[Rfam]
RNA sequence: UCAUCAAUUUCAUAGGUUCCUUAUAUAAACGUGGAAAUAGGGUCCACACGUCUCUACCUGGCUACCGUAAAUAGCCGGACUAUAAGGAAAGAACGAAUGGAU
Numbered sequence: 001u002c003a004u005c006a007a008u009u010u011c012a013u014a015g016g017u018u019c020c021u022u023a024u025a026u027a028a029a030c031g032u033g034g035a036a037a038u039a040g041g042g043u044c045c046a047c048a049c050g051u052c053u054c055u056a057c058c059u060g061g062c063u064a065c066c067g068u069a070a071a072u073a074g075c076c077g078g079a080c081u082a083u084a085a086g087g088a089a090a091g092a093a094c095g096a097a098u099g100g101a102u
Stems, first nucleotide, its partner, number of pairs: 018088008031047005058078007
Dot-bracket structure: .................((((((((.....(((((.......)))))..........(((((((.......)))))))..))))))))..............

A member of the RNA family "Purine riboswitch aptamer" from Halobacillus salinus, 102 nucleotides long. Lineage of the source: Bacteria > Bacillota > Caryophanales > Bacillaceae > Halobacillus.